[Rfam]
RNA sequence: UGAAGAAGCCGAUGAUGACUCGAGCCAAAAUGUCUGAACCUGUCUGAAGCAUCGGUGACGCAUUCUUUAUGGCUCUGAGGCUUCUCUGAGG
Numbered sequence: 001u002g003a004a005g006a007a008g009c010c011g012a013u014g015a016u017g018a019c020u021c022g023a024g025c026c027a028a029a030a031u032g033u034c035u036g037a038a039c040c041u042g043u044c045u046g047a048a049g050c051a052u053c054g055g056u057g058a059c060g061c062a063u064u065c066u067u068u069a070u071g072g073c074u075c076u077g078a079g080g081c082u083u084c085u086c087u088g089a090g091g
Stems, first nucleotide, its partner, number of pairs: 004085007
RNA: Small nucleolar RNA SNORD91 family